Nucleotides: 184
Stems, first nucleotide, its partner, number of pairs: 028072005034060002147169009
Number, partner (000 for none) and nucleotide at each position: 001000g002000a003000u004000a005000a006000u007000c008000g009000a010000a011000u012000a013000u014000g015000g016000a017000u018000a019000c020000c021000g022000u023000a024000g025000a026000c027000c028072g029071u030070a031069g032068g033000u034060g035059c036000a037000g038000c039000g040000c041000g042000a043000a044000u045000g046000a047000a048000c049000u050000u051000u052000c053000g054000c055000g056000u057000g058000a059035g060034c061000u062000u063000a064000a065000u066000u067000u068032c069031c070030u071029a072028c073000c074000g075000a076000g077000g078000u079000g080000u081000g082000u083000g084000g085000a086000u087000a088000g089000a090000g091000u092000u093000u094000u095000u096000c097000u098000u099000u100000u101000a102000u103000g104000c105000a106000a107000a108000g109000u110000g111000c112000g113000u114000c115000g116000c117000a118000u119000u120000u121000u122000g123000a124000u125000c126000a127000u128000a129000a130000g131000a132000g133000c134000g135000a136000g137000a138000u139000c140000a141000c142000g143000u144000c145000a146000u147169g148168c149167c150166u151165c152164c153163g154162c155161g156000a157000a158000g159000u160000c161155u162154g163153c164152g165151g166150g167149g168148g169147c170000a171000u172000u173000u174000c175000u176000u177000a178000u179000g180000c181000c182000u183000c184000u

Notes:
A member of the RNA family "Ribosomal protein L10 leader" from Cohnella herbarum, 184 nucleotides long. The base pairs follow the family's consensus structure, which was predicted with CMfinder. Rfam describes the family as follows. This family is a putative r-protein leader autoregulatory structure found in B. subtilis and other low-GC Gram-positive bacteria. It is located in the 5' untranslated regions of mRNAs encoding ribosomal proteins L10 and L12 (rplJ-rplL). A search with the family's covariance model found it, with a score of 52 bits. Taxonomically the source falls in Cohnella (Bacteria, Bacillati, Caryophanales, Paenibacillaceae).